[Rfam]
RNA: Small nucleolar RNA SNORD87
Organism: Ibidorhyncha struthersii
RNA sequence: GCUGGCAUUAUGAUGAUAACUCUUUGCCGUUUACCCAACUGAAUUUUUUUUGUGAUGAGCAAUGUUGUAUCUGAUGUGCCAGC
Numbered sequence: 001g002c003u004g005g006c007a008u009u010a011u012g013a014u015g016a017u018a019a020c021u022c023u024u025u026g027c028c029g030u031u032u033a034c035c036c037a038a039c040u041g042a043a044u045u046u047u048u049u050u051u052g053u054g055a056u057g058a059g060c061a062a063u064g065u066u067g068u069a070u071c072u073g074a075u076g077u078g079c080c081a082g083c
Stems, first nucleotide, its partner, number of pairs: 001083007